c-di-GMP-I riboswitch aptamer: an 85-nucleotide sequence from Halalkalibacter nanhaiisediminis.
[Rfam]
RNA sequence: AAAGAAAAACGGCAAACUUAUUGAAAAAUAAGGACGCAAAGCUAUAGGGACUAAUGGAAUCAUCCGAUGUCAGCCAGCUGCCUUU
Number, nucleotide and partner (000 for none) at each position: 001a000002a000003a000004g000005a000006a000007a000008a000009a000010c000011g000012g037013c036014a000015a000016a000017c032018u031019u030020a029021u028022u027023g000024a000025a000026a000027a022028a021029u020030a019031a018032g017033g000034a000035c000036g013037c012038a000039a000040a079041g078042c077043u076044a000045u000046a000047g075048g074049g071050a070051c069052u000053a000054a000055u000056g065057g064058a063059a000060u000061c000062a000063u058064c057065c056066g000067a000068u000069g051070u050071c049072a000073g000074c048075c047076a043077g042078c041079u040080g000081c000082c000083u000084u000085u000
Pairs were carried over by alignment from the consensus structure, which is taken from published work.
Gene Ontology term of the family: cyclic-di-GMP binding.